[Rfam]
RNA sequence: UACAGAGUAAUUAGAAAGCGUUAAGUGUCUAGUCAUGGGAUGUCGGAUUGGAACGAACUUUUAAAGGCGGUUUUCUAGUGCAUCCGCUGUA
Numbered sequence: 001u002a003c004a005g006a007g008u009a010a011u012u013a014g015a016a017a018g019c020g021u022u023a024a025g026u027g028u029c030u031a032g033u034c035a036u037g038g039g040a041u042g043u044c045g046g047a048u049u050g051g052a053a054c055g056a057a058c059u060u061u062u063a064a065a066g067g068c069g070g071u072u073u074u075c076u077a078g079u080g081c082a083u084c085c086g087c088u089g090u091a
Base pairs, nucleotide, nucleotide: 001091002090003089004088005087010079011078012077013076014075015074016073017072018071019069020068021067025054026053028052029051030050031049032048033047034046038085039084040083041082042081058066059065060064

The family of this 91-nucleotide sequence from Haploplasma axanthum is "THF (Tetrahydrofolate) riboswitch aptamer". For this family Rfam cites "The structure of a tetrahydrofolate-sensing riboswitch reveals two ligand binding sites in a single aptamer" (Trausch et al., Structure, 2011). The source organism's lineage runs through Bacteria, Bacillati, Mycoplasmatota, Acholeplasmatales and Haploplasma.